[Rfam]
RNA sequence: GGCUUCUCAGCUCCGCUUAAUCACACAAGUCCAGUGUGUGCUUGGCAUGUUUUCAGGGAGGCAAAGAAAGGCUCUCCUAAUGCACAACAGAACCGCCUAGAAUGGCCUCCCUGUUCUUAGGAGUACGACAGUU
Numbered sequence: 001g002g003c004u005u006c007u008c009a010g011c012u013c014c015g016c017u018u019a020a021u022c023a024c025a026c027a028a029g030u031c032c033a034g035u036g037u038g039u040g041c042u043u044g045g046c047a048u049g050u051u052u053u054c055a056g057g058g059a060g061g062c063a064a065a066g067a068a069a070g071g072c073u074c075u076c077c078u079a080a081u082g083c084a085c086a087a088c089a090g091a092a093c094c095g096c097c098u099a100g101a102a103u104g105g106c107c108u109c110c111c112u113g114u115u116c117u118u119a120g121g122a123g124u125a126c127g128a129c130a131g132u133u
Base pairs, nucleotide, nucleotide: 004064005063007061008060011058012057013056015054019043020042022040023039024038025037026036074123075122076121077120078119080118082116089112090111095106096105097104
RNA: Small nucleolar RNA SNORA64/SNORA10 family